Shown here is a 113-nucleotide sequence from Mandrillus leucophaeus, a member of the family "Y RNA". Rfam classes the family as a non-coding RNA gene. NCBI's taxonomy places the organism under Eukaryota, Vertebrata, Boreoeutheria, Cercopithecinae, Mandrillus.

RNA sequence: UGAUUGUCUGAAGGUAGUGAGUUAUCUCAAUUGAUUGUUCAUGAUCAGUUACAGAUGGAACUCCUUGUUCUACCCUUUUGCCUGUGGUCACUACUGCACUUAACUAGUAUAUA
Numbered sequence: 001u002g003a004u005u006g007u008c009u010g011a012a013g014g015u016a017g018u019g020a021g022u023u024a025u026c027u028c029a030a031u032u033g034a035u036u037g038u039u040c041a042u043g044a045u046c047a048g049u050u051a052c053a054g055a056u057g058g059a060a061c062u063c064c065u066u067g068u069u070c071u072a073c074c075c076u077u078u079u080g081c082c083u084g085u086g087g088u089c090a091c092u093a094c095u096g097c098a099c100u101u102a103a104c105u106a107g108u109a110u111a112u113a
Stems, first nucleotide, its partner, number of pairs: 001109002004106001006104002010101002014097002016092005043075001047071002